[Rfam]
RNA sequence: UAAACGAACAAAGCAUCAGCUCGUAUAAUAGCGGUAAUAUGGUCCGCGAGUCUCUACCAGGCUGCCGAUAACGGCCUGACUACGAGUGGUCUUUUUCAGUUG
Numbered sequence: 001u002a003a004a005c006g007a008a009c010a011a012a013g014c015a016u017c018a019g020c021u022c023g024u025a026u027a028a029u030a031g032c033g034g035u036a037a038u039a040u041g042g043u044c045c046g047c048g049a050g051u052c053u054c055u056a057c058c059a060g061g062c063u064g065c066c067g068a069u070a071a072c073g074g075c076c077u078g079a080c081u082a083c084g085a086g087u088g089g090u091c092u093u094u095u096u097c098a099g100u101u102g
Stems, first nucleotide, its partner, number of pairs: 019087007029049001031047004058078007
This 102-nucleotide RNA from Shouchella clausii belongs to the Rfam family "Purine riboswitch aptamer". Taxonomically the source falls in Shouchella clausii (Bacteria, Bacilli, Caryophanales, Bacillaceae). Rfam's curators write: Riboswitches are metabolite binding domains within certain messenger RNAs that serve as precision sensors for their corresponding targets.